[Rfam]
RNA sequence: GCAAGUGACACGGGGUGCCGGCUGGGCCGGCUGAGAUGGAUACCCGUUGAACCUGAACCAGUUAGGACUGGCGGAGGGAAUGUCACAUGGCUCCAUC
Numbered sequence: 001g002c003a004a005g006u007g008a009c010a011c012g013g014g015g016u017g018c019c020g021g022c023u024g025g026g027c028c029g030g031c032u033g034a035g036a037u038g039g040a041u042a043c044c045c046g047u048u049g050a051a052c053c054u055g056a057a058c059c060a061g062u063u064a065g066g067a068c069u070g071g072c073g074g075a076g077g078g079a080a081u082g083u084c085a086c087a088u089g090g091c092u093c094c095a096u097c
Stems, first nucleotide, its partner, number of pairs: 006085005011046004016040001017031005052077003058071004
A member of the RNA family "TPP riboswitch aptamer (THI element)" from Crystallibacter crystallopoietes, 97 nucleotides long. The base pairs follow the family's consensus structure, which is taken from published work. NCBI's taxonomy places the organism under Bacteria, Actinomycetota, Micrococcales, Micrococcaceae, Crystallibacter crystallopoietes. Rfam describes the family as follows. Vitamin B(1) in its active form thiamin pyrophosphate (TPP) is an essential coenzyme that is synthesised by coupling of pyrimidine and thiazole moieties in bacteria. The literature on the family includes a 2002 paper in J Biol Chem by Rodionov et al., "Comparative genomics of thiamin biosynthesis in procaryotes. New genes and regulatory mechanisms".